RNA: Glycine riboswitch aptamer
Organism: Phaeobacter italicus
RNA sequence: CGCAUCAACUCUGGAGAGAUCCGGUCAAAGCCGGACGCCGAAGGGAUAACGAUCUCAGGCGAAGGGACAGAGGGGGCAUC
Numbered sequence: 001c002g003c004a005u006c007a008a009c010u011c012u013g014g015a016g017a018g019a020u021c022c023g024g025u026c027a028a029a030g031c032c033g034g035a036c037g038c039c040g041a042a043g044g045g046a047u048a049a050c051g052a053u054c055u056c057a058g059g060c061g062a063a064g065g066g067a068c069a070g071a072g073g074g075g076g077c078a079u080c
Stems, first nucleotide, its partner, number of pairs: 006075001009072005020035004037060003040056002044054002